This 182-nucleotide sequence from bacterium 1XD42-54 belongs to the Rfam family "6S / SsrS RNA".

RNA sequence: UAGCUUCUGGGGUGUGCGACACUCUUAUCAUUUUGAACCUACAUUUACUUUUAUGGGAUUCCUAUAUCGCGCAGAAAUAUGUCAGGCCUCCAUUAUGCAGAGGAAGACAGACAGCUGCGUUGCGGUUACCCACCUAGCUUUGCUAGGAGUCAAAAGAUAGGAACCGGCACUCUGGAUUUGAA
Numbered sequence: 001u002a003g004c005u006u007c008u009g010g011g012g013u014g015u016g017c018g019a020c021a022c023u024c025u026u027a028u029c030a031u032u033u034u035g036a037a038c039c040u041a042c043a044u045u046u047a048c049u050u051u052u053a054u055g056g057g058a059u060u061c062c063u064a065u066a067u068c069g070c071g072c073a074g075a076a077a078u079a080u081g082u083c084a085g086g087c088c089u090c091c092a093u094u095a096u097g098c099a100g101a102g103g104a105a106g107a108c109a110g111a112c113a114g115c116u117g118c119g120u121u122g123c124g125g126u127u128a129c130c131c132a133c134c135u136a137g138c139u140u141u142g143c144u145a146g147g148a149g150u151c152a153a154a155a156g157a158u159a160g161g162a163a164c165c166g167g168c169a170c171u172c173u174g175g176a177u178u179u180g181a182a
Stems, first nucleotide, its partner, number of pairs: 003179001006176010017166002031157002033154001034152003038147002055131003061125002066121001069120006081108002087103004
Rfam's curators write: E. coli 6S RNA was the first non coding RNA to be sequenced, but its function was unknown until recently. It consists of 184 nucleotides that fold into an extended hairpin structure with a large single-stranded internal bulge. The 6S RNA specifically associates with RNA polymerase holoenzyme containing the sigma70 specificity factor. This interaction represses expression from a sigma70-dependent promoter during stationary phase. 6S RNA homologs have recently been identified in most bacterial genomes. It is annotated as a non-coding RNA gene.